[Rfam]
RNA sequence: UCGCAUCCGCUAAUCGGUUCAGCCGUGUCGCGGGAGGUUUCUCAACCAAGCUAAGGCACUUUUCAGAAGUGCAGAGGUCAGCG
Dot-bracket structure: .(((.(((((....((((...))))....))))).((((....))))..(((...(((((((...)))))))...)))..)))

The family of this 83-nucleotide RNA from Lampropedia hyalina is "SucA RNA motif".